The family of this 65-nucleotide RNA sequence from Oceanihabitans sediminis is "S15-Flavobacteria ribosomal protein leader". Pairs were carried over by alignment from the consensus structure, which is taken from published work. Its Rfam clan is "Ribosomal Protein S15 Leader clan". Lineage of the source: Bacteria > Pseudomonadati > Flavobacteriia > Flavobacteriaceae > Oceanihabitans. A search with the family's covariance model found it, with a score of 69 bits.
RNA sequence: UAUAUUUGCCGAUCGGAAGAUAAUCUUUCGUGUACAUAAAAAUCAUUUACAAAAAUAUUAGCAUG
Numbered sequence: 001u002a003u004a005u006u007u008g009c010c011g012a013u014c015g016g017a018a019g020a021u022a023a024u025c026u027u028u029c030g031u032g033u034a035c036a037u038a039a040a041a042a043u044c045a046u047u048u049a050c051a052a053a054a055a056u057a058u059u060a061g062c063a064u065g
Stems, first nucleotide, its partner, number of pairs: 014030006